Rfam assigns this 92-nucleotide RNA sequence from Actinomadura craniellae to the family "Selenocysteine transfer RNA". The match comes from Rfam's covariance-model search (71 bits). The family's consensus secondary structure is taken from published work. The literature on the family includes a 2000 paper in FEBS Lett by Mizutani and Goto, "Eukaryotic selenocysteine tRNA has the 9/4 secondary structure". Rfam 15.1 lists 4,211 matches to the family in 3,344 species.

[Rfam]
RNA sequence: GGAGGCGUGCGAGCGCCUGGUGGGCUUCCCGGUCUUCAAAACCGAUGGACCCGAGGAUCUCGGGUCGGCGGGUUCGAUUCCCGUACGCCUCC
Dot-bracket structure: (((((((((..((..((....))..))..((((.......))))...(((((.........)))))..((((.......)))))))))))))